[Rfam]
Rfam assigns this 121-nucleotide RNA from Enterovirus betacoxsackie to the family "Enteroviral 3' UTR element". Pairs were carried over by alignment from the consensus structure, which was predicted with PFOLD. On this family, see Wang et al., Nucleic Acids Res 1999: "Structural requirements of the higher order RNA kissing element in the enteroviral 3'UTR". Rfam links the family to the GO term RNA replication.

RNA sequence: AAGUGGUUAGACUCCUUUUAAAAUUAGAGCACAAUUAGUCAAUCAUAAUUGGCUCAACCCUACCGCAUGAACCGAACUUGAUAUAAGUGCGGUAGGGGUAAAUUCUCCGUAUUCGGUGCGG
Numbered sequence: 001a002a003g004u005g006g007u008u009a010g011a012c013u014c015c016u017u018u019u020a021a022a023a024u025u026a027g028a029g030c031a032c033a034a035u036u037a038g039u040c041a042a043u044c045a046u047a048a049u050u051g052g053c054u055c056a057a058c059c060c061u062a063c064c065g066c067a068u069g070a071a072c073c074g075a076a077c078u079u080g081a082u083a084u085a086a087g088u089g090c091g092g093u094a095g096g097g098g099u100a101a102a103u104u105c106u107c108c109g110u111a112u113u114c115g116g117u118g119c120g121g
Stems, first nucleotide, its partner, number of pairs: 025057001027055003032051006058097011071117006107121004
Lineage of the source: Viruses > Riboviria > Pisuviricota > Picornaviridae > Enterovirus B. The family's RNA type in Rfam is cis-regulatory element. Rfam's curators write: This RNA structure is found in the 3' UTR of various enteroviruses. The sequence is in the family's curated seed alignment.